[Rfam]
RNA sequence: GUUUCACAUCCUGAGCUGGACUGACGUCCGCACCAACCUGCCCCCGGGGCAAGGUGGUCUGCCAAAAGCAAUGUGGCCCAACGGGGCAACCAAGCCGAACAAC
Numbered sequence: 001g002u003u004u005c006a007c008a009u010c011c012u013g014a015g016c017u018g019g020a021c022u023g024a025c026g027u028c029c030g031c032a033c034c035a036a037c038c039u040g041c042c043c044c045c046g047g048g049g050c051a052a053g054g055u056g057g058u059c060u061g062c063c064a065a066a067a068g069c070a071a072u073g074u075g076g077c078c079c080a081a082c083g084g085g086g087c088a089a090c091c092a093a094g095c096c097g098a099a100c101a102a103c
Stems, first nucleotide, its partner, number of pairs: 006074004015031001017030005032058003037054003040050003047096001076087004
SAM-I/IV (S-adenosyl methionine) riboswitch aptamer: a 103-nucleotide RNA from Rhodoferax lacus. The source organism's lineage runs through Bacteria, Pseudomonadati, Pseudomonadota, Betaproteobacteria and Rhodoferax. Pairs were carried over by alignment from the consensus structure, which is taken from published work.